The family of this 171-nucleotide sequence from Panicum miliaceum is "MIR2118 microRNA precursor family". Gene Ontology terms of the family: RISC complex and miRNA-mediated post-transcriptional gene silencing. A search with the family's covariance model found it, with a score of 125 bits. Rfam 15.1 lists 2,377 matches to the family in 45 species. Pairs were carried over by alignment from the consensus structure, which was predicted with RNAalifold. Taxonomically the source falls in Panicum sect. Panicum (Eukaryota, Streptophyta, Petrosaviidae, Poaceae). A reference for the family is Xue et al. (2009), "Characterization and expression profiles of miRNAs in rice seeds", Nucleic Acids Res.
RNA sequence: GUGAGCCAAGAAAAAGGAAGAAAACUAUCUAAGAGCGCUAGGGAUAGGAACAUGAAGGAAAGCAUAAUCUCCAUUCCAUGUCUGACAUUGGAUAUGGAGAUUUGGUUUCAUGUUUUCCUGAUGCCUCCUAUUCCUAUGGCUCUUAGAUUCUCCUUCCGUUUCCUUAAGGCU
Numbered sequence: 001g002u003g004a005g006c007c008a009a010g011a012a013a014a015a016g017g018a019a020g021a022a023a024a025c026u027a028u029c030u031a032a033g034a035g036c037g038c039u040a041g042g043g044a045u046a047g048g049a050a051c052a053u054g055a056a057g058g059a060a061a062g063c064a065u066a067a068u069c070u071c072c073a074u075u076c077c078a079u080g081u082c083u084g085a086c087a088u089u090g091g092a093u094a095u096g097g098a099g100a101u102u103u104g105g106u107u108u109c110a111u112g113u114u115u116u117c118c119u120g121a122u123g124c125c126u127c128c129u130a131u132u133c134c135u136a137u138g139g140c141u142c143u144u145a146g147a148u149u150c151u152c153c154u155u156c157c158g159u160u161u162c163c164u165u166a167a168g169g170c171u
Base pairs, nucleotide, nucleotide: 010162011161012160013159016156017155018154023151028147029146030145031144032143033142034141035140036139039136040135041134042133043132044131045130046129047128048127049126051123052122053121055119057118058117059116060115061114062113063112